[Rfam]
RNA sequence: GAAAUUAUUAUUAGUAAGUGAGGCGUCCUUAUGAAAAUGUCUAAACCAGCAUAUAUCGUUUUGCUUGUUGUCGGCUUGGUUUUUGUUUUUUUAGGACUAUCUAACAUUGGGAUUUCGAUUUUCUGGGAUUUUAGUGAUUUAGAAAACUUGAUGGUUGGCUUAUUGUUAAUCAUUAUUGGGACAAUUACACUUAGAAUCCGCUAUUCGUUUAAAAAAAGAGGAUAGAAAAGCACUGCAGUCAACUUUUGCAGUGCUUUUCUA
Numbered sequence: 001g002a003a004a005u006u007a008u009u010a011u012u013a014g015u016a017a018g019u020g021a022g023g024c025g026u027c028c029u030u031a032u033g034a035a036a037a038u039g040u041c042u043a044a045a046c047c048a049g050c051a052u053a054u055a056u057c058g059u060u061u062u063g064c065u066u067g068u069u070g071u072c073g074g075c076u077u078g079g080u081u082u083u084u085g086u087u088u089u090u091u092u093a094g095g096a097c098u099a100u101c102u103a104a105c106a107u108u109g110g111g112a113u114u115u116c117g118a119u120u121u122u123c124u125g126g127g128a129u130u131u132u133a134g135u136g137a138u139u140u141a142g143a144a145a146a147c148u149u150g151a152u153g154g155u156u157g158g159c160u161u162a163u164u165g166u167u168a169a170u171c172a173u174u175a176u177u178g179g180g181a182c183a184a185u186u187a188c189a190c191u192u193a194g195a196a197u198c199c200g201c202u203a204u205u206c207g208u209u210u211a212a213a214a215a216a217a218g219a220g221g222a223u224a225g226a227a228a229a230g231c232a233c234u235g236c237a238g239u240c241a242a243c244u245u246u247u248g249c250a251g252u253g254c255u256u257u258u259c260u261a
Stems, first nucleotide, its partner, number of pairs: 006224004011219002015211008025097005033090007043082006049075002053071003058064001110199006119146009149175011225260001227258001228256011
The family of this 261-nucleotide RNA from Listeria ivanovii is "Listeria sRNA rli40". It is one of the family's seed sequences. The literature on the family includes a 2007 paper in Nucleic Acids Res by Mandin et al., "Identification of new noncoding RNAs in Listeria monocytogenes and prediction of mRNA targets".